Shown here is a 76-nucleotide RNA sequence from Caenorhabditis japonica, a member of the family "Caenorhabditis snoRNA ceN89". Its family is annotated with RNA processing and nucleolus in the Gene Ontology. The sequence is in the family's curated seed alignment. Pairs were carried over by alignment from the consensus structure. Rfam classes the family as a C/D-box small nucleolar RNA.

RNA sequence: GCGCGAUGAGGAAGAAUAUCACAUACACACACUCCGAAUUCUGUGAGGAGAUAAUUAAGAACGGAUAUCUGAGCGC
Numbered sequence: 001g002c003g004c005g006a007u008g009a010g011g012a013a014g015a016a017u018a019u020c021a022c023a024u025a026c027a028c029a030c031a032c033u034c035c036g037a038a039u040u041c042u043g044u045g046a047g048g049a050g051a052u053a054a055u056u057a058a059g060a061a062c063g064g065a066u067a068u069c070u071g072a073g074c075g076c
Stems, first nucleotide, its partner, number of pairs: 001076004